[Rfam]
RNA sequence: CGGCAUGUUAUCCGAGGGCCACGGCUGCCCCCAUAGCUGCGGCAGCUCCAACAACAUGCGAGAGAAACCGAGGGGCUUUGUCAGCUUGUGUCCUUGUCCCACCGGCUGUCACUCUGCUCUCAUACACCC
Numbered sequence: 001c002g003g004c005a006u007g008u009u010a011u012c013c014g015a016g017g018g019c020c021a022c023g024g025c026u027g028c029c030c031c032c033a034u035a036g037c038u039g040c041g042g043c044a045g046c047u048c049c050a051a052c053a054a055c056a057u058g059c060g061a062g063a064g065a066a067a068c069c070g071a072g073g074g075g076c077u078u079u080g081u082c083a084g085c086u087u088g089u090g091u092c093c094u095u096g097u098c099c100c101a102c103c104g105g106c107u108g109u110c111a112c113u114c115u116g117c118u119c120u121c122a123u124a125c126a127c128c129c
Stems, first nucleotide, its partner, number of pairs: 012042002017038003021034001023032001070121005084109002088102003